[Rfam]
RNA sequence: GGCAGAGUAGGGGUCUUGCGUUAAGUGCUGGAGGAUGGAACGUUGCCUCCAGACGAAAGUCCUGGAAAGGACUUGCGAUAAGAUCUCGCGUUCGCUGCC
Numbered sequence: 001g002g003c004a005g006a007g008u009a010g011g012g013g014u015c016u017u018g019c020g021u022u023a024a025g026u027g028c029u030g031g032a033g034g035a036u037g038g039a040a041c042g043u044u045g046c047c048u049c050c051a052g053a054c055g056a057a058a059g060u061c062c063u064g065g066a067a068a069g070g071a072c073u074u075g076c077g078a079u080a081a082g083a084u085c086u087c088g089c090g091u092u093c094g095c096u097g098c099c
Base pairs, nucleotide, nucleotide: 001099002098003097004096005095010087011086012085013084014083015082016081017080018079019077020076021075025054026053028052029051030050031049032048033047034046038093039092040091041090042089058073059072060071061070
RNA: THF (Tetrahydrofolate) riboswitch aptamer
Organism: Natranaerobius thermophilus